[Rfam]
RNA sequence: AGAGGAUCUGUGAUGUGCUUUCUCUGUACUGUAUUCAUCUUUUUGUACUUUGAUCUAAGGUUAUCAGUGAAGAAAGAAUUGGGGGUAAUAUUUUCUUAGAUGCUC
Dot-bracket structure: .(((.(((((......................................................................................))))).)))
Small nucleolar RNA snoR26: a 105-nucleotide RNA from Hordeum vulgare. NCBI's taxonomy places the organism under Eukaryota, Mesangiospermae, commelinids, Hordeinae, Hordeum vulgare. On this family, see Brown et al., RNA 2001: "Multiple snoRNA gene clusters from Arabidopsis". A search with the family's covariance model found it, with a score of 49 bits.